[Rfam]
RNA sequence: GGGACCGCGGUAGCCGAGUGGUUAGCAUGAGAGACUCUCACGCCGCGGUCGUGGGUUCGAUUCCCACCGGCGCCUUUGGCCCUUUUU
Number, nucleotide and partner (000 for none) at each position: 001g000002g082003g081004a000005c079006c078007g077008c000009g000010g000011u000012a000013g071014c070015c069016g068017a000018g067019u066020g065021g064022u000023u000024a061025g000026c059027a000028u000029g000030a000031g000032a000033g000034a000035c000036u000037c000038u000039c000040a000041c000042g000043c000044c000045g000046c000047g000048g000049u000050c000051g000052u000053g000054g000055g000056u000057u000058c000059g026060a000061u024062u000063c000064c021065c020066a019067c018068c016069g015070g014071c013072g000073c000074c000075u000076u000077u007078g006079g005080c000081c003082c002083u000084u000085u000086u000087u000
RNA: Vault RNA